6C RNA: a 73-nucleotide RNA from Paractinoplanes rishiriensis. A search with the family's covariance model found it, with a score of 59 bits. The literature on the family includes a 2007 paper in Nucleic Acids Res by Weinberg et al., "Identification of 22 candidate structured RNAs in bacteria using the CMfinder comparative genomics pipeline". By type it is a cis-regulatory element.
[Rfam]
RNA sequence: GUCGAUUCGGCUCGACCCCCCCGGAGCCGAAUCUUCGGACGGCCCCCGUCUCCCCCGACGGGGGUCGUUCCCU
Numbered sequence: 001g002u003c004g005a006u007u008c009g010g011c012u013c014g015a016c017c018c019c020c021c022c023g024g025a026g027c028c029g030a031a032u033c034u035u036c037g038g039a040c041g042g043c044c045c046c047c048g049u050c051u052c053c054c055c056c057g058a059c060g061g062g063g064g065u066c067g068u069u070c071c072c073u
Base pairs, nucleotide, nucleotide: 004033005032006031007030008029009028010027011026012025013024038069039068040067041066042065043064044063045062046061047060048059049058050057